[Rfam]
RNA: Y RNA
Organism: Rhinopithecus roxellana
RNA sequence: GGCUGGUCCAAUGGUAGUGGGUUAUCAGAACUCAUUAACUGUGUCACUAAAGUUGAUAUACAAAAUCCACUGCUAAAUUUGGCUUUUUAUUU
Numbered sequence: 001g002g003c004u005g006g007u008c009c010a011a012u013g014g015u016a017g018u019g020g021g022u023u024a025u026c027a028g029a030a031c032u033c034a035u036u037a038a039c040u041g042u043g044u045c046a047c048u049a050a051a052g053u054u055g056a057u058a059u060a061c062a063a064a065a066u067c068c069a070c071u072g073c074u075a076a077a078u079u080u081g082g083c084u085u086u087u088u089a090u091u092u
Stems, first nucleotide, its partner, number of pairs: 001088002005084004010080002015075001016071006027057001030054001